UnaL2 LINE 3' element: a 54-nucleotide sequence from Oncorhynchus kisutch.

[Rfam]
RNA sequence: UGCACGCACCACUGUAAGUCUCUCUGGAUAAGAGCAUCUGCUAAAUUACUCAAA
Dot-bracket structure: ............((((.....((((.....))))....))).)...........
Numbered sequence: 001u002g003c004a005c006g007c008a009c010c011a012c013u014g015u016a017a018g019u020c021u022c023u024c025u026g027g028a029u030a031a032g033a034g035c036a037u038c039u040g041c042u043a044a045a046u047u048a049c050u051c052a053a054a
Stems, first nucleotide, its partner, number of pairs: 013043001014041003022034004
Rfam's curators write: The eel long interspersed element (LINE) UnaL2 and its partner short interspersed element (SINE) share a conserved 3' tail containing a stem-loop that is critical for their retrotransposition. Presumably, the first step of retrotransposition is the recognition of their 3' tails by UnaL2-encoded reverse transcriptase. It is annotated as a cis-regulatory element. On this family, see Baba et al., RNA 2004: "Solution structure of an RNA stem-loop derived from the 3' conserved region of eel LINE UnaL2".